Description
A member of the RNA family "Eukaryotic large subunit ribosomal RNA" from Gracilariopsis chorda, 600 nucleotides of a longer RNA.
[Rfam]
RNA sequence: GAAGACCCUGUUGAGCUUGACUCUAUUCUAAUUUUGUGGAGCAAGUUGGGAGGUGUAGCAUAGGUGGGAGACUUUACGUCGCCAGUGAAAUACCACUACUCCCAAUCUUGCUUUACUUACUAGGCAGGUGUGGAUGGGGUCAGUUUUCUGAUUCUUUUUUUGGAGCCAAGCCGGUUUUUUCUUCGGGAAAGACCAUAGGUGACCACCGCCUAGGACAGAUUUAGGAGGGGAGUUUGGCUGGGGCGGUACAUCUUCUACAAGACAACGAAGGUGUCCUAAGAUCAGCUCAGUGAGAACAGAAAUCUCACGUAGCGCAAAAGGGUAAAAGCUGGUUUGAUUUCGAUUUUCAGUGCGAGUCGAAAACGCGAAAGCGUGGCCUAUCGAUCCUUUCACGAUUCGAGAUUUGAAGCGAGAGGUGUCAGAAAAGUUACCACAGGGAUAACUGGCUUGUGGCGGCCAAGCGUUCAUAGCGACGUCGCUUUUUGAUCCUUCGAUGUCGGCUCUUCCUAUCAUUGCGUCGCAGAAGGCGCAAAGUGUCGGAUUGUUCACCCGCCAACAGGGAACGUGAGCUGGGUUUAGACCGUCGUGAGACAGGUUAGU
Dot-bracket structure: ......((((.(((((((.((((...(((((.(..(((((((((((((((((..........(((((..((.......))............))))).))))))).))))))))))...(((((.....((((....(((((......)))))................(((.(.....................).)))..))))..))))).....).)))))....))))..((((.....))).)((((((...........))))))..((....((((((.(.((((((.......))))))...).((......))....))))))....(((((((((.......))))))))).(((....))).))..........(((((....(((.......)))..))))).........)))))..))))))........(.(.(.((((((...((.......))...))))))...)).)..........(((((((((((..((.((((((......))))))...)).(((.(.....).))).....)))))..)..)))).).....(((((((....))).))))...